Shown here is a 74-nucleotide RNA from Myripristis murdjan, a member of the family "Small nucleolar RNA SNORD2". Taxonomically the source falls in Myripristis (Eukaryota, Eumetazoa, Osteoglossocephalai, Neoteleostei). Rfam 15.1 lists 1,116 matches to the family in 660 species.
RNA sequence: GAGUGAAAUGAUGUUCUACCAUCUUUCGGGACUUACUCAGAAAUGGGGACAAGCUUUCUGUUCACUGAUCACUC
Numbered sequence: 001g002a003g004u005g006a007a008a009u010g011a012u013g014u015u016c017u018a019c020c021a022u023c024u025u026u027c028g029g030g031a032c033u034u035a036c037u038c039a040g041a042a043a044u045g046g047g048g049a050c051a052a053g054c055u056u057u058c059u060g061u062u063c064a065c066u067g068a069u070c071a072c073u074c
Base pairs, nucleotide, nucleotide: 001074002073003072004071005070006069